A member of the RNA family "SAM (S-adenosyl methionine) riboswitch aptamer" from Cellulomonas composti, 116 nucleotides long. NCBI's taxonomy places the organism under Bacteria, Bacillati, Actinomycetota, Cellulomonadaceae, Cellulomonas. A search with the family's covariance model found it, with a score of 62 bits.
RNA sequence: GGUCAAGAGGACCAGCGUCAAGCCCUCCGGCUCGCUGGCCGGCAACCGCGCCGCUCGUGGCACGGUGCCCCCGGAGGAAGACCCGCCCGCGCCACCCGGCGCAGGAAGUCACGAGC
Dot-bracket structure: ((((....(..(((((....((........)).))))).)(((..(((..((......))..))).)))..........))))..((.(((((....))))).))...........